[Rfam]
Rfam assigns this 161-nucleotide RNA sequence from Anaerotruncus sp. G3(2012) to the family "RT-14 RNA". It is annotated as a small RNA. Lineage of the source: Bacteria > Bacillati > Bacillota > Eubacteriales > Anaerotruncus.
RNA sequence: CUCUACCCUCAAAGCCAGAUACGCAAAGCUCACGGGCUGUGCGUCAGUGCAGAGGGGAUAAAGGGGCCUGUUUCCAUGCCGUCCAAAUAGGCAAAAAACAAAACCCUCAUGGAAGCCGUUAGUAACCCGGCCACAGGCCGGGCGAACGCCGUGACACAUGA
Numbered sequence: 001c002u003c004u005a006c007c008c009u010c011a012a013a014g015c016c017a018g019a020u021a022c023g024c025a026a027a028g029c030u031c032a033c034g035g036g037c038u039g040u041g042c043g044u045c046a047g048u049g050c051a052g053a054g055g056g057g058a059u060a061a062a063g064g065g066g067c068c069u070g071u072u073u074c075c076a077u078g079c080c081g082u083c084c085a086a087a088u089a090g091g092c093a094a095a096a097a098a099c100a101a102a103a104c105c106c107u108c109a110u111g112g113a114a115g116c117c118g119u120u121a122g123u124a125a126c127c128c129g130g131c132c133a134c135a136g137g138c139c140g141g142g143c144g145a146a147c148g149c150c151g152u153g154a155c156a157c158a159u160g161a
Base pairs, nucleotide, nucleotide: 003057006055007054009052014050015049021044022043023042024041025040027038028037029036078092079091080090107161108160109159110158111157115152116151118149119148126142127141128140129139130138131137132136